[Rfam]
RNA sequence: ACUCAACACUUAUUCAUUAAGAAGGGUGUAGUUUUAGUUGUAAAAGCAAGCCGCCACUUUUUGUGAAGCGGAUCCUUGAUCAGUUAAGCAGCCCUAAACCUGUUAUAAACGGAGUUU
Numbered sequence: 001a002c003u004c005a006a007c008a009c010u011u012a013u014u015c016a017u018u019a020a021g022a023a024g025g026g027u028g029u030a031g032u033u034u035u036a037g038u039u040g041u042a043a044a045a046g047c048a049a050g051c052c053g054c055c056a057c058u059u060u061u062u063g064u065g066a067a068g069c070g071g072a073u074c075c076u077u078g079a080u081c082a083g084u085u086a087a088g089c090a091g092c093c094c095u096a097a098a099c100c101u102g103u104u105a106u107a108a109a110c111g112g113a114g115u116u117u
Stems, first nucleotide, its partner, number of pairs: 023095005035086005044077003051071004
The family of this 117-nucleotide RNA from Psychroflexus halocasei is "6S-Flavo RNA".
Lineage of the source: Bacteria > Flavobacteriia > Flavobacteriales > Flavobacteriaceae > Psychroflexus.
The family's RNA type in Rfam is small RNA.